[Rfam]
RNA sequence: AGUUGCAAGCUCAAGGCCAUGGCAGAAAGGCUCAUGGUGUGGCCUGUCAGAUUCCAAAUGAAACUGCAAGUUCUGCU
Number, nucleotide and partner (000 for none) at each position: 001a000002g000003u000004u000005g000006c000007a000008a000009g000010c000011u000012c000013a000014a000015g044016g043017c042018c041019a000020u000021g077022g076023c075024a074025g073026a072027a071028a040029g000030g038031c000032u000033c000034a000035u000036g000037g000038u030039g000040u028041g018042g017043c016044c015045u000046g000047u000048c066049a065050g064051a000052u062053u061054c060055c000056a000057a000058a000059u000060g054061a053062a052063a000064c050065u049066g048067c000068a000069a000070g000071u027072u026073c025074u024075g023076c022077u021
A member of the RNA family "Mammalian CPEB3 ribozyme" from Alligator sinensis, 77 nucleotides long.
NCBI's taxonomy places the organism under Eukaryota, Bilateria, Deuterostomia, Alligatorinae, Alligator.
Pairs were carried over by alignment from the consensus structure, which is taken from published work.